[Rfam]
RNA: mir-67 microRNA precursor family
Organism: Darwinula stevensoni
RNA sequence: GCCAUGUCUGACUCACUCAAACUGGCUGCGAUGUUUUCAUUCCCAACCGUCACAACCUCCUUGAGUGAGUGAGACUGCGC
Numbered sequence: 001g002c003c004a005u006g007u008c009u010g011a012c013u014c015a016c017u018c019a020a021a022c023u024g025g026c027u028g029c030g031a032u033g034u035u036u037u038c039a040u041u042c043c044c045a046a047c048c049g050u051c052a053c054a055a056c057c058u059c060c061u062u063g064a065g066u067g068a069g070u071g072a073g074a075c076u077g078c079g080c
Stems, first nucleotide, its partner, number of pairs: 009071002012069009024057002027054002030051004